[Rfam]
RNA sequence: GGGUUCGGUUACAUGGUAACCGGAGGAAAUUUGGAUGGUCGGGCCGCUAUCC
Number, nucleotide and partner (000 for none) at each position: 001g000002g000003g000004u000005u023006c022007g021008g020009u019010u018011a017012c016013a000014u000015g000016g012017u011018a010019a009020c008021c007022g006023g005024a000025g000026g000027a000028a000029a000030u000031u000032u000033g052034g051035a050036u049037g048038g047039u046040c000041g000042g000043g000044c000045c000046g039047c038048u037049a036050u035051c034052c033